[Rfam]
RNA sequence: GAACAUAAACCUGGAGAGACUACAAGCACGGAAAAAGUGAAAAUGUGAUUAUGUGGCAUCGAAGAAGAAACUCGAAUUUUCAGCUUUGGGGGAAACUUUCAGAUAAAAGGACAGGUGUAAAUAG
Numbered sequence: 001g002a003a004c005a006u007a008a009a010c011c012u013g014g015a016g017a018g019a020c021u022a023c024a025a026g027c028a029c030g031g032a033a034a035a036a037g038u039g040a041a042a043a044u045g046u047g048a049u050u051a052u053g054u055g056g057c058a059u060c061g062a063a064g065a066a067g068a069a070a071c072u073c074g075a076a077u078u079u080u081c082a083g084c085u086u087u088g089g090g091g092g093a094a095a096c097u098u099u100c101a102g103a104u105a106a107a108a109g110g111a112c113a114g115g116u117g118u119a120a121a122u123a124g
Stems, first nucleotide, its partner, number of pairs: 006119002009116005020056004058104003061100002065098003071091002
Dot-bracket structure: .....((.(((((......((((.............................)))).(((((..(((...((.................))....))))).))).......))))).)).....

Background: The family of this 124-nucleotide sequence from Clostridium senegalense is "Glycine riboswitch aptamer". Lineage of the source: Bacteria > Bacillati > Bacillota > Clostridia > Clostridium. Pairs were carried over by alignment from the consensus structure.